[Rfam]
Shown here is a 123-nucleotide sequence from Apostasia shenzhenica, a member of the family "mir-393 microRNA precursor family". On this family, see Kruszka et al., J Plant Physiol 2012: "Role of microRNAs and other sRNAs of plants in their changing environments". Pairs were carried over by alignment from the consensus structure. Rfam links the family to the GO terms miRNA-mediated post-transcriptional gene silencing and RISC complex.

RNA sequence: GGAGGGUGCAUCCAAAGGGAUCGCAUUGAUCCUUGUCUUAUCAAUCUUCAUCAUCACAAUCUCGUCGCCGUGGCAUGCGUGCAUUAUGCGUAUGGAUCAUGCGAUCCUUUUGGAUUCCUCCUC
Numbered sequence: 001g002g003a004g005g006g007u008g009c010a011u012c013c014a015a016a017g018g019g020a021u022c023g024c025a026u027u028g029a030u031c032c033u034u035g036u037c038u039u040a041u042c043a044a045u046c047u048u049c050a051u052c053a054u055c056a057c058a059a060u061c062u063c064g065u066c067g068c069c070g071u072g073g074c075a076u077g078c079g080u081g082c083a084u085u086a087u088g089c090g091u092a093u094g095g096a097u098c099a100u101g102c103g104a105u106c107c108u109u110u111u112g113g114a115u116u117c118c119u120c121c122u123c
Stems, first nucleotide, its partner, number of pairs: 002123005008117001010115012023102004028098005